Shown here is a 158-nucleotide RNA sequence from Nocardioides marmoriginsengisoli, a member of the family "c-di-AMP riboswitch aptamer (ydaO/yuaA leader)".
Taxonomically the source falls in Nocardioides (Bacteria, Bacillati, Actinomycetota, Actinomycetes).
About the family: This family represents a conserved RNA structure found upstream of the ydaO and yuaA genes in Bacillus subtilis and related genes in other bacteria.
RNA sequence: CUUCUCGGAGAGCAUGGAUCCGGAGCCGGGGACCCAAGUUUCCAUGGGGUGAAUCCGGCACCGCUCAGGACGAGCACCACGUCCUGGAGGUGCUGGUAGGGCGAUCUUUGCGCCCGAAUCCGUCAGCUCACCUGGUAAGCGUUCUACAAAGAGGAGCU
Numbered sequence: 001c002u003u004c005u006c007g008g009a010g011a012g013c014a015u016g017g018a019u020c021c022g023g024a025g026c027c028g029g030g031g032a033c034c035c036a037a038g039u040u041u042c043c044a045u046g047g048g049g050u051g052a053a054u055c056c057g058g059c060a061c062c063g064c065u066c067a068g069g070a071c072g073a074g075c076a077c078c079a080c081g082u083c084c085u086g087g088a089g090g091u092g093c094u095g096g097u098a099g100g101g102c103g104a105u106c107u108u109u110g111c112g113c114c115c116g117a118a119u120c121c122g123u124c125a126g127c128u129c130a131c132c133u134g135g136u137a138a139g140c141g142u143u144c145u146a147c148a149a150a151g152a153g154g155a156g157c158u
Base pairs, nucleotide, nucleotide: 003024004023005022025136026135027134028133029132030131035046036045047121048120049119055096056095057094058093059092060091061090062089099115100114101113102112